Rfam assigns this 55-nucleotide RNA from Leptolyngbya ectocarpi to the family "Nitrogen stress-induced RNA 1". It scores 47 bits against the family's covariance model. It is annotated as a small RNA. A reference for the family is Ionescu et al. (2010), "Heterocyst-specific transcription of NsiR1, a non-coding RNA encoded in a tandem array of direct repeats in cyanobacteria", J Mol Biol. Taxonomically the source falls in Leptolyngbya ectocarpi (Bacteria, Cyanobacteriota, Cyanophyceae, Leptolyngbyaceae).
RNA sequence: UGGUAGAUGCACCCUGAUUCCGAGCCCUAGAGAUGCAUCUUUGGGGCUCUUUCUU
Numbered sequence: 001u002g003g004u005a006g007a008u009g010c011a012c013c014c015u016g017a018u019u020c021c022g023a024g025c026c027c028u029a030g031a032g033a034u035g036c037a038u039c040u041u042u043g044g045g046g047c048u049c050u051u052u053c054u055u
Stems, first nucleotide, its partner, number of pairs: 002013003024047010